RNA sequence: CUUCACGUUAAGCUCCAAUUAAGCUUUUCGCGGUAAGGUCAUGGUAUUCAGAUUUUCUGAAUUUUGCAGAGUGGUUUCUCCCUCUGUUUGACGCCUCCCUGUUAACUUCGAGAGCCGUAAAUUUUGCGGCUCUUUUUCU
Numbered sequence: 001c002u003u004c005a006c007g008u009u010a011a012g013c014u015c016c017a018a019u020u021a022a023g024c025u026u027u028u029c030g031c032g033g034u035a036a037g038g039u040c041a042u043g044g045u046a047u048u049c050a051g052a053u054u055u056u057c058u059g060a061a062u063u064u065u066g067c068a069g070a071g072u073g074g075u076u077u078c079u080c081c082c083u084c085u086g087u088u089u090g091a092c093g094c095c096u097c098c099c100u101g102u103u104a105a106c107u108u109c110g111a112g113a114g115c116c117g118u119a120a121a122u123u124u125u126g127c128g129g130c131u132c133u134u135u136u137u138c139u
Stems, first nucleotide, its partner, number of pairs: 001043001003041001005014001015037001020035002025030001047061004069084003073081002090103004110134011
Dot-bracket structure: (.(.(........)(....((...(....)...)).)...).)...((((.......)))).......(((.((.....))))).....((((......))))......(((((((((((...))))))))))).....
Alphaproteobacterial sRNA BjrC1505: a 139-nucleotide RNA sequence from Devosia equisanguinis. The source organism's lineage runs through Bacteria, Alphaproteobacteria, Hyphomicrobiales, Devosiaceae and Devosia. On this family, see Madhugiri et al., RNA Biol 2012: "Small RNAs of the Bradyrhizobium/Rhodopseudomonas lineage and their analysis".